[Rfam]
Nucleotides: 087
Stems, first nucleotide, its partner, number of pairs: 012037002017032006040081004045077003048072003055066003
Number, partner (000 for none) and nucleotide at each position: 001000u002000a003000u004000u005000g006000a007000a008000a009000a010000a011000g012037g013036c014000a015000a016000a017032c018031u019030u020029a021028c022027u023000g024000a025000a026000a027022g028021g029020u030019a031018g032017g033000g034000a035000c036013g037012c038000a039000a040081a041080g042079c043078c044000a045077u046076a047075g048072g049071u050070c051000u052000a053000a054000g055066g056065u057064c058000a059000u060000u061000c062000a063000c064057g065056a066055c067000u068000a069000a070050g071049a072048u073000a074000g075047c076046u077045a078043g079042g080041u081040u082000a083000c084000c085000a086000a087000a

The record is an 87-nucleotide RNA sequence from Anaerobacillus arseniciselenatis, which matches "c-di-GMP-I riboswitch aptamer" in Rfam.
A search with the family's covariance model found it, with a score of 89 bits.
Rfam links the family to the GO term cyclic-di-GMP binding.